[Rfam]
RNA sequence: AAUUCCUUCAAACUAGUCCAGAGAGGCUAAAAAGGUUAAGUAUUAAUAUGAUUAUUUAGACUUGAAUUCAUAACCUCUAGCUGGCAAAGUUAGAGGUUUUUUAAU
Numbered sequence: 001a002a003u004u005c006c007u008u009c010a011a012a013c014u015a016g017u018c019c020a021g022a023g024a025g026g027c028u029a030a031a032a033a034g035g036u037u038a039a040g041u042a043u044u045a046a047u048a049u050g051a052u053u054a055u056u057u058a059g060a061c062u063u064g065a066a067u068u069c070a071u072a073a074c075c076u077c078u079a080g081c082u083g084g085c086a087a088a089g090u091u092a093g094a095g096g097u098u099u100u101u102u103a104a105u
Base pairs, nucleotide, nucleotide: 005035006034007033008032014029015028016027017026018025039068040067041066043064045062047060049058050057051056070100072098073097074096075095076094077093078092079091080090081089082088
RNA: PyrR binding site
Organism: Romboutsia lituseburensis